[Rfam]
RNA sequence: UAUAUGUAUGGGAAUGAGGUUCUCCCACGGAUUUUUUCCGAAACCGCUUUUGCUGAUGACUUCUGUUUUAUA
Number, nucleotide and partner (000 for none) at each position: 001u000002a000003u000004a000005u000006g000007u000008a000009u000010g026011g025012g024013a023014a000015u000016g063017a062018g061019g060020u059021u058022c000023u013024c012025c011026c010027a000028c000029g000030g000031a000032u000033u000034u000035u000036u000037u000038c000039c000040g000041a000042a000043a000044c000045c000046g053047c052048u000049u000050u000051u000052g047053c046054u000055g000056a000057u000058g021059a020060c019061u018062u017063c016064u000065g000066u000067u000068u000069u000070a000071u000072a000
This 72-nucleotide RNA from Eubacterium sp. CAG:202 belongs to the Rfam family "Fluoride riboswitch aptamer (crcB RNA motif)". Rfam 15.1 lists 2,293 matches to the family in 1,982 species. A search with the family's covariance model found it, with a score of 41 bits. The source organism's lineage runs through Bacteria, Bacillati, Bacillota, Eubacteriales and Eubacterium.